[Rfam]
RNA sequence: UACCUGAACACUAGCAUUGACUUGUCUAUAUUAUGCAGUAAGUGCUACUUGUUGGGGUAG
Numbered sequence: 001u002a003c004c005u006g007a008a009c010a011c012u013a014g015c016a017u018u019g020a021c022u023u024g025u026c027u028a029u030a031u032u033a034u035g036c037a038g039u040a041a042g043u044g045c046u047a048c049u050u051g052u053u054g055g056g057g058u059a060g
Stems, first nucleotide, its partner, number of pairs: 001059005008052003013046006020039003
Dot-bracket structure: (((((..(((..((((((.(((..............))).))))))...)))..))))).
Rfam assigns this 60-nucleotide sequence from Salmo salar to the family "miR-430 microRNA precursor family". Its family is annotated with RISC complex and miRNA-mediated post-transcriptional gene silencing in the Gene Ontology. Its Rfam clan is "mir-290 clan". For this family Rfam cites "MicroRNAs regulate brain morphogenesis in zebrafish" (Giraldez et al., Science, 2005).